[Rfam]
RNA sequence: UUUUAAAAUGAUUGUAGGUCCCUAAGACGUAUCCAGGGAUGUUGAUAGGAUCCCUCUGUGCCCUCAUGGGGGUUCUGACAAUCGCCCUCCCGGUGCCUGUCAUUGUGGCGAAU
Numbered sequence: 001u002u003u004u005a006a007a008a009u010g011a012u013u014g015u016a017g018g019u020c021c022c023u024a025a026g027a028c029g030u031a032u033c034c035a036g037g038g039a040u041g042u043u044g045a046u047a048g049g050a051u052c053c054c055u056c057u058g059u060g061c062c063c064u065c066a067u068g069g070g071g072g073u074u075c076u077g078a079c080a081a082u083c084g085c086c087c088u089c090c091c092g093g094u095g096c097c098u099g100u101c102a103u104u105g106u107g108g109c110g111a112a113u
Stems, first nucleotide, its partner, number of pairs: 002112001004110001008106004014100003018096002020093001036076004048062002
Shown here is a 113-nucleotide RNA sequence from Halicephalobus sp. NKZ332, a member of the family "Potassium channel RNA editing signal". Rfam describes the family as follows. This family represents a group of sequences related to the human potassium channel Kv1.1 hairpin element which directs the efficient modification of an adenosine to inosine by an adenosine deaminase acting on RNA (ADAR). The ADAR modification causes an isoleucine/valine recoding event which lies in the ion-conducting pore of the potassium channel. It is thought that this editing event targets the process of fast inactivation and allows a more rapid recovery from inactivation at negative potentials. Its family is annotated with adenosine to inosine editing in the Gene Ontology. The literature on the family includes a 2004 paper in Nat Struct Mol Biol by Bhalla et al., "Control of human potassium channel inactivation by editing of a small mRNA hairpin".